RNA sequence: AACAGCCACAGUUGCUAUGUUGCUAUGGCAACUCUGGAAGCCUGGAUUCAGCCUCGCAGGAACUACGGGGCUCUCAGUCUGCACGGCCUGGAGGCUCCGGGGCGGG
Numbered sequence: 001a002a003c004a005g006c007c008a009c010a011g012u013u014g015c016u017a018u019g020u021u022g023c024u025a026u027g028g029c030a031a032c033u034c035u036g037g038a039a040g041c042c043u044g045g046a047u048u049c050a051g052c053c054u055c056g057c058a059g060g061a062a063c064u065a066c067g068g069g070g071c072u073c074u075c076a077g078u079c080u081g082c083a084c085g086g087c088c089u090g091g092a093g094g095c096u097c098c099g100g101g102g103c104g105g106g
Base pairs, nucleotide, nucleotide: 004096005095006094007093009090010089011088012086013085014084019079022078023077024076027073030072032070033069034068035067036066038064041060042059043058044057
The family of this 106-nucleotide sequence from Nyctereutes procyonoides is "mir-8834 microRNA precursor family". Gene Ontology terms of the family: RISC complex and miRNA-mediated post-transcriptional gene silencing. It scores 53 bits against the family's covariance model. The organism belongs to Nyctereutes, within Eukaryota.